[Rfam]
RNA sequence: CGCAAGUAUUUUACGAUUAAGAGACAACUGUCUCUUGUAUAGAUCGUGGAUUAAUCU
Numbered sequence: 001c002g003c004a005a006g007u008a009u010u011u012u013a014c015g016a017u018u019a020a021g022a023g024a025c026a027a028c029u030g031u032c033u034c035u036u037g038u039a040u041a042g043a044u045c046g047u048g049g050a051u052u053a054a055u056c057u
Stems, first nucleotide, its partner, number of pairs: 018037008
RNA: Plastid-rps18 3UTR RNA